Rfam assigns this 130-nucleotide RNA from Salvator merianae to the family "Small nucleolar RNA SNORA31". From the family's description: ACA31 (SNORA31) belongs to the H/ACA class of snoRNAs which are thought to guide the sites of modification of uridines to pseudouridines. ACA31 is predicted to guide the pseudouridylation of U3713 in 28S rRNA and U218 in 18S rRNA. This family includes the mouse homologue snoMBI-161. A reference for the family is Huttenhofer et al. (2001), "RNomics: an experimental approach that identifies 201 candidates for novel, small, non-messenger RNAs in mouse", EMBO J. The family's RNA type in Rfam is H/ACA-box small nucleolar RNA. Pairs were carried over by alignment from the consensus structure, which was predicted with RNAalifold. NCBI's taxonomy places the organism under Eukaryota, Euteleostomi, Bifurcata, Teiidae, Salvator.
RNA sequence: AUGCAUCUGCUGAUAGGCCAGGAACAACUCCUUUUGUUCUCUGGUUUGCACUAAGAUGCAAUAGCAAUUUCCUCGCGCUUUCUGACUGCCUGGUAAUAUGGCAGCUCCGAUUGAAUAGUGGAGAACAGUG
Numbered sequence: 001a002u003g004c005a006u007c008u009g010c011u012g013a014u015a016g017g018c019c020a021g022g023a024a025c026a027a028c029u030c031c032u033u034u035u036g037u038u039c040u041c042u043g044g045u046u047u048g049c050a051c052u053a054a055g056a057u058g059c060a061a062u063a064g065c066a067a068u069u070u071c072c073u074c075g076c077g078c079u080u081u082c083u084g085a086c087u088g089c090c091u092g093g094u095a096a097u098a099u100g101g102c103a104g105c106u107c108c109g110a111u112u113g114a115a116u117a118g119u120g121g122a123g124a125a126c127a128g129u130g
Base pairs, nucleotide, nucleotide: 002060003059004058005057006056007055008054011050012049014048015047016046017045018044019043022039023038024037025036026035027034070122071121072120074118078113081110082109084107086104087103088102089101090100